[Rfam]
Nucleotides: 056
Base pairs, nucleotide, nucleotide: 006051007050008049009048010047011046012045013044014043015042016041017040018039019038020037021036022035023034
Number, partner (000 for none) and nucleotide at each position: 001000g002000c003000c004000g005000c006051u007050g008049a009048g010047a011046a012045c013044u014043u015042u016041u017040u018039g019038a020037a021036u022035c023034a024000c025000u026000a027000u028000a029000u030000u031000a032000c033000u034023u035022g036021a037020u038019u039018c040017a041016a042015a043014a044013a045012g046011u047010u048009c049008u050007u051006a052000c053000a054000a055000a056000u

This 56-nucleotide sequence from Manihot esculenta belongs to the Rfam family "Plastid-ccsA-ndhD-1 3UTR RNA". Rfam describes the family as follows. Plastid-ccsA-ndhD-1 is a non-coding RNA (ncRNA) recognised in plastids. It was found in the three prime untranslated region (3UTR) of ccsA and ndhD genes, its 3UTR location suggests a role in transcript maturation. The source organism's lineage runs through Eukaryota, Viridiplantae, Euphyllophyta, Spermatophyta and Manihot. The family has 488 seed sequences and 1,322 matches in Rfam 15.1. Rfam's curators put it in the seed alignment. Its Rfam clan is "Plastid-ccsA_ndhD 3UTR RNA clan". On this family, see Stern and Gruissem, Cell 1987: "Control of plastid gene expression: 3' inverted repeats act as mRNA processing and stabilizing elements, but do not terminate transcription". The family's RNA type in Rfam is cis-regulatory element.